[Rfam]
The record is a 95-nucleotide sequence from Atlantibacter hermannii, which matches "Tryptophan operon leader" in Rfam. At least 6 amino acid operons are known to be regulated by attenuation. In each a leader sequence of 150-200 bp is found upstream of the first gene in the operon. This leader sequence can assume two different secondary structures known as the terminator and the anti-terminator structure. In each case the leader also codes for very short peptide sequence that is rich in the end product amino acid of the operon. The family's consensus secondary structure is taken from published work. It scores 65 bits against the family's covariance model. Rfam links the family to the GO terms tryptophan biosynthetic process and transcriptional attenuation by ribosome. NCBI's taxonomy places the organism under Bacteria, Pseudomonadati, Gammaproteobacteria, Atlantibacter, Atlantibacter hermannii.

RNA sequence: CACAGCUGGUGGCACACUUCCUGAUUAAGGGCAGUGAAUCCACUGUGCGUCACGCACACCAGAUACCCGGCCCGCAAUAAUGCGGGCUUUUUUUU
Numbered sequence: 001c002a003c004a005g006c007u008g009g010u011g012g013c014a015c016a017c018u019u020c021c022u023g024a025u026u027a028a029g030g031g032c033a034g035u036g037a038a039u040c041c042a043c044u045g046u047g048c049g050u051c052a053c054g055c056a057c058a059c060c061a062g063a064u065a066c067c068c069g070g071c072c073c074g075c076a077a078u079a080a081u082g083c084g085g086g087c088u089u090u091u092u093u094u095u
Base pairs, nucleotide, nucleotide: 009043010042011041012040015036016035017034018033020031021030022029069088070087071086072085073084074083075082076081

On this family, see Kolter and Yanofsky, Annu Rev Genet 1982: "Attenuation in amino acid biosynthetic operons".